[Rfam]
RNA: Small nucleolar RNA SNORA14
Organism: Elachura formosa
RNA sequence: CUGCACUUUGCAACCCAUGAUGGAAACAGUGAUAUUUUACCUUCAGAGAAGUGAAAUUGCAUCAGCAACAGUAAGAUUUUGCAAUGGACUUCUUUUAAAAUGUGAAUAAUUCUAAAUCCAUACUUAUCUACAGCU
Numbered sequence: 001c002u003g004c005a006c007u008u009u010g011c012a013a014c015c016c017a018u019g020a021u022g023g024a025a026a027c028a029g030u031g032a033u034a035u036u037u038u039a040c041c042u043u044c045a046g047a048g049a050a051g052u053g054a055a056a057u058u059g060c061a062u063c064a065g066c067a068a069c070a071g072u073a074a075g076a077u078u079u080u081g082c083a084a085u086g087g088a089c090u091u092c093u094u095u096u097a098a099a100a101u102g103u104g105a106a107u108a109a110u111u112c113u114a115a116a117u118c119c120a121u122a123c124u125u126a127u128c129u130a131c132a133g134c135u
Stems, first nucleotide, its partner, number of pairs: 003060003008051002011048001018045003022041002025038002064135003070129002072126004085114004090109002093106002